[Rfam]
RNA sequence: UGAUGAGGUAGAGGUGCAAUAUCCAUUAGUACGUAACAGGAGCCCGACAGCAAAGAAUGUUGACGGAAAGGGGGUAUUGCCGAAGUAGAAUUGAUCACGUCAAAGAUCAUCUGCUGGGGUUGUAUUGAAUAAAUACAACACUGUCACUGUAUCUGAUGCAGUGGAGGACUACUUUGAAC
Numbered sequence: 001u002g003a004u005g006a007g008g009u010a011g012a013g014g015u016g017c018a019a020u021a022u023c024c025a026u027u028a029g030u031a032c033g034u035a036a037c038a039g040g041a042g043c044c045c046g047a048c049a050g051c052a053a054a055g056a057a058u059g060u061u062g063a064c065g066g067a068a069a070g071g072g073g074g075u076a077u078u079g080c081c082g083a084a085g086u087a088g089a090a091u092u093g094a095u096c097a098c099g100u101c102a103a104a105g106a107u108c109a110u111c112u113g114c115u116g117g118g119g120u121u122g123u124a125u126u127g128a129a130u131a132a133a134u135a136c137a138a139c140a141c142u143g144u145c146a147c148u149g150u151a152u153c154u155g156a157u158g159c160a161g162u163g164g165a166g167g168a169c170u171a172c173u174u175u176g177a178a179c
Stems, first nucleotide, its partner, number of pairs: 006174006016080009032065002034062005084115006092109005116142002119139008144164007

The family of this 179-nucleotide sequence from Texcoconibacillus texcoconensis is "Lysine riboswitch aptamer".
It scores 118 bits against the family's covariance model.
NCBI's taxonomy places the organism under Bacteria, Bacilli, Caryophanales, Bacillaceae, Texcoconibacillus.
Pairs were carried over by alignment from the consensus structure, which is taken from published work.